[Rfam]
RNA sequence: ACCUAUUCUCGGGGCAGGGUGAAAUUCCCGACCGGCGGUGACUCCGCAACAGUGGACAGCCCGCGAGCGCCUGCCGUGACACGGCAGGGUCAGCAGACCCGGUGAGACUCCGGGGCCGACGGUUAGAGUCCGGAUGACAGAGGAUAGGG
Numbered sequence: 001a002c003c004u005a006u007u008c009u010c011g012g013g014g015c016a017g018g019g020u021g022a023a024a025u026u027c028c029c030g031a032c033c034g035g036c037g038g039u040g041a042c043u044c045c046g047c048a049a050c051a052g053u054g055g056a057c058a059g060c061c062c063g064c065g066a067g068c069g070c071c072u073g074c075c076g077u078g079a080c081a082c083g084g085c086a087g088g089g090u091c092a093g094c095a096g097a098c099c100c101g102g103u104g105a106g107a108c109u110c111c112g113g114g115g116c117c118g119a120c121g122g123u124u125a126g127a128g129u130c131c132g133g134a135u136g137a138c139a140g141a142g143g144a145u146a147g148g149g
Base pairs, nucleotide, nucleotide: 003147004146005145006144007143008142009141010140017029018028019027031129032128033118034117035064036063037062038061059116060115067094068093098114099113100112101111102110120132121131122130
The family of this 149-nucleotide sequence from Marichromatium purpuratum is "FMN riboswitch aptamer (RFN element)". It scores 116 bits against the family's covariance model.